[Rfam]
Background:
The record is a 105-nucleotide sequence from Lachnospiraceae bacterium A10, which matches "TPP riboswitch aptamer (THI element)" in Rfam. The organism belongs to Lachnospiraceae, within Bacteria. The match comes from Rfam's covariance-model search (57 bits).

Nucleotides: 105
Base pairs, nucleotide, nucleotide: 008091012056013055014054017030018029019028020027021026037051038050039049040048041047061086062085063084064083067080068079069078070077
Number, partner (000 for none) and nucleotide at each position: 001000u002000a003000a004000a005000u006000a007000a008091g009000a010000a011000a012056c013055g014054g015000g016000a017030g018029c019028u020027u021026g022000u023000a024000a025000a026021c027020a028019g029018g030017c031000u032000g033000a034000g035000a036000g037051g038050a039049a040048g041047g042000u043000g044000u045000g046000a047041c048040c049039u050038u051037c052000g053000a054014c055013c056012g057000a058000g059000a060000a061086c062085c063084u064083g065000a066000u067080u068079u069078g070077g071000a072000u073000a074000a075000u076000g077070c078069c079068a080067a081000c082000g083064u084063a085062g086061g087000g088000a089000c090000g091008c092000c093000g094000a095000u096000g097000g098000a099000a100000a101000u102000a103000u104000u105000a